RNA sequence: UCCAUCGUGAGGUGGAGUCUGAAGGAAGCCUAAUGCAAAAUCUCGGUCUGACGAUCAGAAAUCACAUACAAGGCAUAUGUGAGUCGGACGAUGUGCCAUACAACACAAAGUCCAAUACCACCCGAACCCUACGGUGUAAAUGUGGCAGAUAUAUGAGAGGAAAGUUACCGUU
Numbered sequence: 001u002c003c004a005u006c007g008u009g010a011g012g013u014g015g016a017g018u019c020u021g022a023a024g025g026a027a028g029c030c031u032a033a034u035g036c037a038a039a040a041u042c043u044c045g046g047u048c049u050g051a052c053g054a055u056c057a058g059a060a061a062u063c064a065c066a067u068a069c070a071a072g073g074c075a076u077a078u079g080u081g082a083g084u085c086g087g088a089c090g091a092u093g094u095g096c097c098a099u100a101c102a103a104c105a106c107a108a109a110g111u112c113c114a115a116u117a118c119c120a121c122c123c124g125a126a127c128c129c130u131a132c133g134g135u136g137u138a139a140a141u142g143u144g145g146c147a148g149a150u151a152u153a154u155g156a157g158a159g160g161a162a163a164g165u166u167a168c169c170g171u172u
Stems, first nucleotide, its partner, number of pairs: 001016006028172001030170001035165002041158005046150005062145006073137003079132003083128001086113004092105003
Source information:
Rfam assigns this 172-nucleotide sequence from Natranaerobius trueperi to the family "Group II catalytic intron D1-D4-3". From the family's description: Group II introns are found in rRNA, tRNA and mRNA of organelles in fungi, plants and protists, and also in mRNA in bacteria. The match comes from Rfam's covariance-model search (127 bits). Taxonomically the source falls in Natranaerobius (Bacteria, Clostridia, Natranaerobiales, Natranaerobiaceae).